[Rfam]
RNA sequence: CACACACGGACUUUGGUGUCUGCCCGGGAGAAAUCCGGCUGAAACCUCCGGUGGCGUUCAAGGACCUCGUCCGAAAAUGCCUGUGUCCGUGGAGGCUAACCGGAAAGGAAAAUA
Dot-bracket structure: (.(.(((((((...((......(..(........).).......))......((((((.................))))))...)))))))).)....................
RNA: rpsB sRNA
Organism: Mesorhizobium sp. Root172